RNA sequence: GAGUCCCUCAAGCCUAAUCCGCGCAGCCGUUGCGCGGAGCCGGGGACCCACUCCCCUCUGGGGCGAAUCGGCACGUCCGCGCGCCGUAGGGCCACUUCCAGGCCCGAGCCCGUCAGCUAACCCGGCCGGCCGUGUGGAAGGACUC
Numbered sequence: 001g002a003g004u005c006c007c008u009c010a011a012g013c014c015u016a017a018u019c020c021g022c023g024c025a026g027c028c029g030u031u032g033c034g035c036g037g038a039g040c041c042g043g044g045g046a047c048c049c050a051c052u053c054c055c056c057u058c059u060g061g062g063g064c065g066a067a068u069c070g071g072c073a074c075g076u077c078c079g080c081g082c083g084c085c086g087u088a089g090g091g092c093c094a095c096u097u098c099c100a101g102g103c104c105c106g107a108g109c110c111c112g113u114c115a116g117c118u119a120a121c122c123c124g125g126c127c128g129g130c131c132g133u134g135u136g137g138a139a140g141g142a143c144u145c
Base pairs, nucleotide, nucleotide: 012130013129014128018038019037020036021035022034023033024032025031026030039126040125041124042123043122044121049060050059061111062110063109069086070085071084072083089105090104091103092102

The family of this 145-nucleotide RNA sequence from Nonomuraea muscovyensis is "c-di-AMP riboswitch aptamer (ydaO/yuaA leader)". This family represents a conserved RNA structure found upstream of the ydaO and yuaA genes in Bacillus subtilis and related genes in other bacteria. Its family is annotated with cyclic-di-AMP binding and regulation of gene expression in the Gene Ontology. The match comes from Rfam's covariance-model search (74 bits).